[Rfam]
RNA sequence: GUCAACUACCCCUCGGCUGAAGACCGAGGGGCUUGAAAAGGCCCCAAAGUUGACCAGUCUAAGUGCUUCGAGCACUACGUUAGAUCGGAAAUAGGUACCCUGGGGUACUCGCCAGCUCCAGGUUCUACAGUAAGUGGUUAAACAGGUUUAAGGGGUUAAGCCGGUGCUGCUUGCGCCAAACCCGGUCAUAACAUUGACGA
Numbered sequence: 001g002u003c004a005a006c007u008a009c010c011c012c013u014c015g016g017c018u019g020a021a022g023a024c025c026g027a028g029g030g031g032c033u034u035g036a037a038a039a040g041g042c043c044c045c046a047a048a049g050u051u052g053a054c055c056a057g058u059c060u061a062a063g064u065g066c067u068u069c070g071a072g073c074a075c076u077a078c079g080u081u082a083g084a085u086c087g088g089a090a091a092u093a094g095g096u097a098c099c100c101u102g103g104g105g106u107a108c109u110c111g112c113c114a115g116c117u118c119c120a121g122g123u124u125c126u127a128c129a130g131u132a133a134g135u136g137g138u139u140a141a142a143c144a145g146g147u148u149u150a151a152g153g154g155g156u157u158a159a160g161c162c163g164g165u166g167c168u169g170c171u172u173g174c175g176c177c178a179a180a181c182c183c184g185g186u187c188a189u190a191a192c193a194u195u196g197a198c199g200a
Base pairs, nucleotide, nucleotide: 001054002053003052004051005050006049007048010031011030012028013027017022032041033040034039057198058197059196061194062076063075064074065073066072079192080191081190082189084186085185086184087183088182095128096127099122100121101120102119103118104117105116106115130174131173132172133171134170135169136168137167138166142165143164145162146161147160148159149158150157151156

The family of this 200-nucleotide RNA from Desulfobacter latus is "HNH endonuclease-associated RNA and ORF (HEARO) RNA". Rfam 15.1 lists 952 matches to the family in 249 species. The source organism's lineage runs through Bacteria, Pseudomonadati, Thermodesulfobacteriota, Desulfobacteria and Desulfobacter. By type it is a non-coding RNA gene. A search with the family's covariance model found it, with a score of 132 bits. For this family Rfam cites "Exceptional structured noncoding RNAs revealed by bacterial metagenome analysis" (Weinberg et al., Nature, 2009).